[Rfam]
RNA sequence: AAUUGAAUUAAAGCGCCUGAUCCUGUUAUUUAUUAGGACGACGAGGUUGGGGAUUAUCGAAUUAUUCGGCGGAUGUCCCCAGGUCAACCUGUCUGGCCUUAAGUCUGGCAAUAAAAACUAAAGGUAACUUUAGGUACAAAUUGUUAGACAGACACUUGA
Numbered sequence: 001a002a003u004u005g006a007a008u009u010a011a012a013g014c015g016c017c018u019g020a021u022c023c024u025g026u027u028a029u030u031u032a033u034u035a036g037g038a039c040g041a042c043g044a045g046g047u048u049g050g051g052g053a054u055u056a057u058c059g060a061a062u063u064a065u066u067c068g069g070c071g072g073a074u075g076u077c078c079c080c081a082g083g084u085c086a087a088c089c090u091g092u093c094u095g096g097c098c099u100u101a102a103g104u105c106u107g108g109c110a111a112u113a114a115a116a117a118c119u120a121a122a123g124g125u126a127a128c129u130u131u132a133g134g135u136a137c138a139a140a141u142u143g144u145u146a147g148a149c150a151g152a153c154a155c156u157u158g159a
Stems, first nucleotide, its partner, number of pairs: 021038005027032001048081005057069004082097001084095001103149007118133006
RNA: glmS glucosamine-6-phosphate activated ribozyme aptamer